About this RNA
This 140-nucleotide RNA sequence from Corticibacter populi belongs to the Rfam family "radC RNA". The base pairs follow the family's consensus structure, which is taken from published work. The family has 148 seed sequences and 500 matches in Rfam 15.1. A search with the family's covariance model found it, with a score of 79 bits.

RNA sequence: AGCUGCCGCGCAUGCGUCGCUGAUCCGUCAGCACCAUGCCAGCAGCCAAGGUCGUCCAGGCUGCGCCGCGGAGCCUUCCGCGCCGACCCACCCGUCCGCUUCGCAUCGUCCCGCGGACGAACGCCCCAGGGCGUCGAUGC
Numbered sequence: 001a002g003c004u005g006c007c008g009c010g011c012a013u014g015c016g017u018c019g020c021u022g023a024u025c026c027g028u029c030a031g032c033a034c035c036a037u038g039c040c041a042g043c044a045g046c047c048a049a050g051g052u053c054g055u056c057c058a059g060g061c062u063g064c065g066c067c068g069c070g071g072a073g074c075c076u077u078c079c080g081c082g083c084c085g086a087c088c089c090a091c092c093c094g095u096c097c098g099c100u101u102c103g104c105a106u107c108g109u110c111c112c113g114c115g116g117a118c119g120a121a122c123g124c125c126c127c128a129g130g131g132c133g134u135c136g137a138u139g140c
Stems, first nucleotide, its partner, number of pairs: 011038004019032005042064006050088004065084001067082005113140003121134005